This 117-nucleotide sequence from Pseudoleptotrichia goodfellowii belongs to the Rfam family "FMN riboswitch aptamer (RFN element)". Its family is annotated with FMN binding in the Gene Ontology.

RNA sequence: AUUAAACUUCAGGGCAGGGUGAAAUUCCCGACCGGCGGUAUAGUCCGCGAGCUUUUAUGAGCAUGAACCGGUUAAAUUCCGGUACCGAUAGUAAAGUCUAGAUGGAAGAAGUUAGAA
Numbered sequence: 001a002u003u004a005a006a007c008u009u010c011a012g013g014g015c016a017g018g019g020u021g022a023a024a025u026u027c028c029c030g031a032c033c034g035g036c037g038g039u040a041u042a043g044u045c046c047g048c049g050a051g052c053u054u055u056u057a058u059g060a061g062c063a064u065g066a067a068c069c070g071g072u073u074a075a076a077u078u079c080c081g082g083u084a085c086c087g088a089u090a091g092u093a094a095a096g097u098c099u100a101g102a103u104g105g106a107a108g109a110a111g112u113u114a115g116a117a
Stems, first nucleotide, its partner, number of pairs: 003115001005113006017029003031097002033087002035048004043085002053061001067083005089100003